[Rfam]
RNA: RAGATH-28 RNA
RNA sequence: GCAGACGGUUGAUUCGUCCCGCUGCAGGAAGCCGUGGACAUAGGGAACAGGAACUGAGCAGGAUAACCUGGUCGGGUGGCGGAGC
Numbered sequence: 001g002c003a004g005a006c007g008g009u010u011g012a013u014u015c016g017u018c019c020c021g022c023u024g025c026a027g028g029a030a031g032c033c034g035u036g037g038a039c040a041u042a043g044g045g046a047a048c049a050g051g052a053a054c055u056g057a058g059c060a061g062g063a064u065a066a067c068c069u070g071g072u073c074g075g076g077u078g079g080c081g082g083a084g085c
Base pairs, nucleotide, nucleotide: 001025002024003023004022007020008019054075055074056073057072059070060069061068